[Rfam]
RNA sequence: ACCUGCACUUCGCUCGUCCCGCUCCGUUUUUUGUUGAGCGUGUGGGCGACGGAUGGUGGAGGGAGA
Numbered sequence: 001a002c003c004u005g006c007a008c009u010u011c012g013c014u015c016g017u018c019c020c021g022c023u024c025c026g027u028u029u030u031u032u033g034u035u036g037a038g039c040g041u042g043u044g045g046g047c048g049a050c051g052g053a054u055g056g057u058g059g060a061g062g063g064a065g066a
Stems, first nucleotide, its partner, number of pairs: 002062003006058003014049006020040005